This 119-nucleotide RNA sequence from Pasteuria nishizawae belongs to the Rfam family "Group II catalytic intron D1-D4-2".
About the family: Group II introns are found in rRNA, tRNA and mRNA of organelles in fungi, plants and protists, and also in mRNA in bacteria.
Rfam links the family to the GO term Group II intron splicing.
Nucleotides: 119
Base pairs, nucleotide, nucleotide: 004015005014007012016042017041018040020038021037023035024034047118050095051094052093053092054091055090058084059083061081062080063079065077066076067075102114103113104112105111106110
Number, partner (000 for none) and nucleotide at each position: 001000g002000a003000a004015g005014a006000u007012g008000g009000u010000c011000c012007c013000u014005u015004c016042g017041a018040a019000a020038c021037c022000g023035g024034c025000g026000g027000g028000u029000a030000g031000a032000a033000g034024g035023c036000a037021g038020g039000g040018u041017u042016c043000a044000a045000a046000c047118c048000a049000u050095u051094c052093c053092a054091g055090c056000c057000u058084g059083c060000u061081g062080c063079u064000a065077a066076c067075g068000g069000u070000a071000a072000c073000a074000a075067c076066g077065u078000c079063g080062g081061u082000a083059g084058u085000g086000a087000g088000c089000g090055g091054c092053u093052g094051g095050g096000a097000a098000a099000a100000a101000a102114a103113c104112a105111a106110g107000a108000u109000g110106c111105u112104u113103g114102u115000c116000a117000g118047g119000u